[Rfam]
U2 spliceosomal RNA: a 182-nucleotide sequence from Molothrus ater. By type it is a spliceosomal small nuclear RNA. The organism belongs to Molothrus, within Eukaryota. About the family: U2 is a small nuclear RNA (snRNA) component of the spliceosome (involved in pre-mRNA splicing). Complementary binding between U2 snRNA (in an area lying towards the 5' end but 3' to hairpin I) and the branchpoint sequence (BPS) of the intron results the bulging out of an unpaired adenosine, on the BPS, which initiates a nucleophilic attack at the intronic 5' splice site, thus starting the first of two transesterification reactions that mediate splicing.
RNA sequence: UUUGCUACUGGUGUUGGCCAAGUGUCGUAUCUGAUCUUAAGAGUUUAAUAUCUGAUAUGCCCUUGAUGAGAGGAUUUUAUAUUAAACAGACUUUGGGGCAUGGGAGCUGGACCUGGAGCUUGGUGUCUCUGCUUCGUGCAUUGCCCCAGCAUUGCAGUGACUCUGGGAAUAGUGCACUGAUA
Numbered sequence: 001u002u003u004g005c006u007a008c009u010g011g012u013g014u015u016g017g018c019c020a021a022g023u024g025u026c027g028u029a030u031c032u033g034a035u036c037u038u039a040a041g042a043g044u045u046u047a048a049u050a051u052c053u054g055a056u057a058u059g060c061c062c063u064u065g066a067u068g069a070g071a072g073g074a075u076u077u078u079a080u081a082u083u084a085a086a087c088a089g090a091c092u093u094u095g096g097g098g099c100a101u102g103g104g105a106g107c108u109g110g111a112c113c114u115g116g117a118g119c120u121u122g123g124u125g126u127c128u129c130u131g132c133u134u135c136g137u138g139c140a141u142u143g144c145c146c147c148a149g150c151a152u153u154g155c156a157g158u159g160a161c162u163c164u165g166g167g168a169a170u171a172g173u174g175c176a177c178u179g180a181u182a
Stems, first nucleotide, its partner, number of pairs: 003013004038057002042053002059075001061073004103135005109129002115126001117124001138175006145167005
Dot-bracket structure: ..((((...))))........................((..((........))..)).(.((((.....)))).)...........................(((((.((....(.(......).).)).)))))..((((((.(((((.............)))))..)))))).......

Record summary: It scores 78 bits against the family's covariance model.